[Rfam]
Notes
A member of the RNA family "mir-43_2 microRNA precursor family" from Ascaris suum, 78 nucleotides long. Its family is annotated with RISC complex and miRNA-mediated post-transcriptional gene silencing in the Gene Ontology. It is one of the family's seed sequences.
RNA sequence: UAUAGCGGCACGUGGCAAAGGUGCUGCGAUGCGCCGCGUUAAAUCGUAUCACAGUUCUUUGUCACCUUUUGCUUCACA
Numbered sequence: 001u002a003u004a005g006c007g008g009c010a011c012g013u014g015g016c017a018a019a020g021g022u023g024c025u026g027c028g029a030u031g032c033g034c035c036g037c038g039u040u041a042a043a044u045c046g047u048a049u050c051a052c053a054g055u056u057c058u059u060u061g062u063c064a065c066c067u068u069u070u071g072c073u074u075c076a077c078a
Stems, first nucleotide, its partner, number of pairs: 004073005012065010023055004028050006